[Rfam]
RNA: drz-agam-1 ribozyme
Organism: Hermetia illucens
RNA sequence: CUCCUACCAAAUCCUAUCUCUACCCCCAUGUGGUGACCGCUGGGAGCUCUUUCUUAAGGAAAAGCUGCAGACGGAGAAGG
Numbered sequence: 001c002u003c004c005u006a007c008c009a010a011a012u013c014c015u016a017u018c019u020c021u022a023c024c025c026c027c028a029u030g031u032g033g034u035g036a037c038c039g040c041u042g043g044g045a046g047c048u049c050u051u052u053c054u055u056a057a058g059g060a061a062a063a064g065c066u067g068c069a070g071a072c073g074g075a076g077a078a079g080g
Base pairs, nucleotide, nucleotide: 013080014079015078017076019074020073022034023033024032045066046065047064048063050061051060052059053058